[Rfam]
RNA sequence: ACUCAACGGAAAUUCUUUAAAAAGGAGUGCGUUUAAGUUGUAAAAGCAUGCUGUCUUGUUACAGAUCCUUGAUCAGCUUUUCAACUCUAAAUCUUGUAUUUAUGGAGUUU
Numbered sequence: 001a002c003u004c005a006a007c008g009g010a011a012a013u014u015c016u017u018u019a020a021a022a023a024g025g026a027g028u029g030c031g032u033u034u035a036a037g038u039u040g041u042a043a044a045a046g047c048a049u050g051c052u053g054u055c056u057u058g059u060u061a062c063a064g065a066u067c068c069u070u071g072a073u074c075a076g077c078u079u080u081u082c083a084a085c086u087c088u089a090a091a092u093c094u095u096g097u098a099u100u101u102a103u104g105g106a107g108u109u110u
Stems, first nucleotide, its partner, number of pairs: 024088005035079005044070003051064004
6S-Flavo RNA: a 110-nucleotide RNA sequence from Formosa sp. Hel1_33_131. Pairs were carried over by alignment from the consensus structure, which is taken from published work. The family's RNA type in Rfam is small RNA.